Overview
A member of the RNA family "Group II catalytic intron D1-D4-3" from Eubacteriaceae bacterium CHKCI004, 197 nucleotides long. A reference for the family is Bonen and Vogel (2001), "The ins and outs of group II introns", Trends Genet. The organism belongs to Eubacteriaceae, within Bacteria.
[Rfam]
Nucleotides: 197
Base pairs, nucleotide, nucleotide: 001016002015003014004013005012006011051197053195054194055193059188063183064182065181066180067179068178069174070173071172072171073170085169086168087167088166089165090164096161097160098159100157101156102155103154104153105152106151107135108134109133110132113128114127115126116125
Number, partner (000 for none) and nucleotide at each position: 001016u002015c003014c004013a005012u006011c007000g008000u009000g010000a011006g012005g013004u014003g015002g016001a017000a018000u019000c020000u021000g022000a023000a024000g025000g026000a027000a028000g029000c030000c031000g032000g033000a034000u035000g036000u037000g038000g039000g040000g041000a042000a043000c044000c045000u046000a047000c048000u049000a050000a051197c052000c053195c054194a055193c056000g057000g058000g059188c060000a061000a062000a063183c064182c065181u066180c067179u068178g069174g070173u071172c072171u073170g074000a075000c076000g077000g078000a079000c080000a081000g082000a083000a084000a085169u086168c087167g088166u089165a090164u091000a092000g093000a094000a095000g096161g097160c098159u099000g100157u101156g102155c103154a104153u105152g106151a107135g108134g109133g110132u111000a112000a113128g114127u115126c116125u117000g118000c119000c120000a121000u122000a123000c124000a125116a126115g127114a128113u129000g130000a131000a132110g133109c134108c135107c136000g137000a138000u139000a140000g141000c142000u143000a144000c145000a146000c147000g148000g149000a150000a151106u152105c153104a154103u155102g156101u157100g158000c159098a160097g161096u162000a163000a164090a165089u166088g167087c168086g169085g170073c171072a172071g173070a174069u175000g176000g177000a178068u179067g180066g181065a182064g183063g184000g185000a186000a187000a188059g189000a190000a191000a192000c193055g194054u195053g196000u197051g